Rfam assigns this 66-nucleotide sequence from Bacillus sp. FJAT-49711 to the family "Bacillaceae-1 RNA".
It is annotated as a small RNA.
[Rfam]
RNA sequence: AAAAAAGGAACGUCGACUAAAACCGCCACGUCCUGUGGCAACGUCGACGGACCCGCAUCCUGCGGG
Numbered sequence: 001a002a003a004a005a006a007g008g009a010a011c012g013u014c015g016a017c018u019a020a021a022a023c024c025g026c027c028a029c030g031u032c033c034u035g036u037g038g039c040a041a042c043g044u045c046g047a048c049g050g051a052c053c054c055g056c057a058u059c060c061u062g063c064g065g066g
Base pairs, nucleotide, nucleotide: 011049012048013047014046015045016044017043025039026038027037028036029035052066053065054064055063056062
The family has 95 seed sequences and 5,721 matches in Rfam 15.1. The family's consensus secondary structure is taken from published work. Taxonomically the source falls in Bacillus (Bacteria, Bacillota, Bacilli, Caryophanales).